[Rfam]
RNA sequence: GGGUUCUUAGCUCAGUUGGUAGAGCAGCGGACUCUUAAUCCGUAGGUCGAGUGUUCGAGCCACUCAGGACCCA
Numbered sequence: 001g002g003g004u005u006c007u008u009a010g011c012u013c014a015g016u017u018g019g020u021a022g023a024g025c026a027g028c029g030g031a032c033u034c035u036u037a038a039u040c041c042g043u044a045g046g047u048c049g050a051g052u053g054u055u056c057g058a059g060c061c062a063c064u065c066a067g068g069a070c071c072c073a
Stems, first nucleotide, its partner, number of pairs: 001072007010025004027043005049065005
Overview
Shown here is a 73-nucleotide RNA from Verminephrobacter eiseniae, a member of the family "tRNA". Rfam classes the family as a transfer RNA.